The record is a 73-nucleotide RNA sequence from Bombyx mori, which matches "mir-71 microRNA precursor family" in Rfam. Rfam's curators put it in the seed alignment. NCBI's taxonomy places the organism under Eukaryota, Hexapoda, Pterygota, Glossata, Bombyx. Pairs were carried over by alignment from the consensus structure, which was predicted with RNAalifold.
[Rfam]
RNA sequence: ACCUCUUGAAAGACAUGGGUAGUGAGAUGUCCCGUACAUCUAAAAUUCUCACUACCUUGUCUUUCAUGCGGAU
Numbered sequence: 001a002c003c004u005c006u007u008g009a010a011a012g013a014c015a016u017g018g019g020u021a022g023u024g025a026g027a028u029g030u031c032c033c034g035u036a037c038a039u040c041u042a043a044a045a046u047u048c049u050c051a052c053u054a055c056c057u058u059g060u061c062u063u064u065c066a067u068g069c070g071g072a073u
Stems, first nucleotide, its partner, number of pairs: 008065008017057003021053007